[Rfam]
RNA sequence: CAGGAAUCAUAUGACUGGCGGAAGUGGAUUAUAACCACAGGGAGUAUGAUUCUUAAUUUUGCCGACCGCCUGGGUAACUUAU
Dot-bracket structure: ..((((((((((..(([[[[[..((((.......)))).))..)))))))))).....(((((..]]]]]..))))).....
Numbered sequence: 001c002a003g004g005a006a007u008c009a010u011a012u013g014a015c016u017g018g019c020g021g022a023a024g025u026g027g028a029u030u031a032u033a034a035c036c037a038c039a040g041g042g043a044g045u046a047u048g049a050u051u052c053u054u055a056a057u058u059u060u061g062c063c064g065a066c067c068g069c070c071u072g073g074g075u076a077a078c079u080u081a082u
Stems, first nucleotide, its partner, number of pairs: 003053010015041002017070005024038004059077005
About this RNA:
A member of the RNA family "ZMP/ZTP riboswitch aptamer (pfl RNA motif)" from Acetivibrio clariflavus, 82 nucleotides long. The family's consensus secondary structure is taken from published work.